The record is a 69-nucleotide RNA sequence from Burkholderiales bacterium GJ-E10, which matches "int-alpA RNA" in Rfam. It scores 57 bits against the family's covariance model. Rfam classes the family as a small RNA. Rfam's curators write: Acidobacteria (1 example), Planctomycetes (1 example), Proteobacteria. Rfam 15.1 lists 577 matches to the family in 491 species.

[Rfam]
RNA sequence: GCCGCGCCUAGCCCGACGGGGCGAAAAGGCCGUUCCCUUGCGGCCCUGGUGCGGCAUCCCGAAGCUGUG
Numbered sequence: 001g002c003c004g005c006g007c008c009u010a011g012c013c014c015g016a017c018g019g020g021g022c023g024a025a026a027a028g029g030c031c032g033u034u035c036c037c038u039u040g041c042g043g044c045c046c047u048g049g050u051g052c053g054g055c056a057u058c059c060c061g062a063a064g065c066u067g068u069g
Stems, first nucleotide, its partner, number of pairs: 001055008011022004028045005037069001
Dot-bracket structure: ((((((((..((((....)))).....(((((....[...)))))..)))))))).............]